[Rfam]
RNA sequence: AAUGCAUUCUGGGACUCUCUCUGUGACUUGUGUUAUUAUAAUUCACAUCACAGGCAGAGUUCUAGCGAAGCGU
Number, nucleotide and partner (000 for none) at each position: 001a000002a000003u000004g000005c000006a000007u000008u000009c065010u064011g063012g062013g061014a060015c059016u058017c057018u000019c000020u000021c053022u052023g051024u050025g049026a048027c000028u000029u000030g046031u045032g044033u000034u000035a000036u000037u000038a000039u000040a000041a000042u000043u000044c032045a031046c030047a000048u026049c025050a024051c023052a022053g021054g000055c000056a000057g017058a016059g015060u014061u013062c012063u011064a010065g009066c000067g000068a000069a000070g000071c000072g000073u000
This 73-nucleotide RNA from Sitophilus oryzae belongs to the Rfam family "mir-11 microRNA precursor family". A search with the family's covariance model found it, with a score of 59 bits. Lineage of the source: Eukaryota > Bilateria > Neoptera > Curculionidae > Sitophilus.